RNA sequence: UGUGCAACUUCAGAUAUUUCUCGUAUAGCCCCGCAAUCAUAGGGUGGGGGUCUCUACAGGGAGCCUAUACUUCCUAACUACGAUGAUAAGGAAUGUCCUU
Numbered sequence: 001u002g003u004g005c006a007a008c009u010u011c012a013g014a015u016a017u018u019u020c021u022c023g024u025a026u027a028g029c030c031c032c033g034c035a036a037u038c039a040u041a042g043g044g045u046g047g048g049g050g051u052c053u054c055u056a057c058a059g060g061g062a063g064c065c066u067a068u069a070c071u072u073c074c075u076a077a078c079u080a081c082g083a084u085g086a087u088a089a090g091g092a093a094u095g096u097c098c099u100u
Stems, first nucleotide, its partner, number of pairs: 018086002021083005029049006059075005

The family of this 100-nucleotide sequence from Propionispora vibrioides is "Purine riboswitch aptamer". The base pairs follow the family's consensus structure, which is taken from published work. Taxonomically the source falls in Propionispora (Bacteria, Bacillati, Bacillota, Sporomusaceae).